SucA RNA motif: an 82-nucleotide sequence from Aquabacterium sp. Its family is annotated with regulation of translation in the Gene Ontology.
[Rfam]
RNA sequence: UCGCAAUCCGCCAAUCGGUCAAGCCGUGUCGCGGAAGGUUUUCAACCAACCAAACCCAGUAAACCUGGGAGUGAGGUCAGCG
Numbered sequence: 001u002c003g004c005a006a007u008c009c010g011c012c013a014a015u016c017g018g019u020c021a022a023g024c025c026g027u028g029u030c031g032c033g034g035a036a037g038g039u040u041u042u043c044a045a046c047c048a049a050c051c052a053a054a055c056c057c058a059g060u061a062a063a064c065c066u067g068g069g070a071g072u073g074a075g076g077u078c079a080g081c082g
Stems, first nucleotide, its partner, number of pairs: 002082003007035005016026004037047004049077003055069005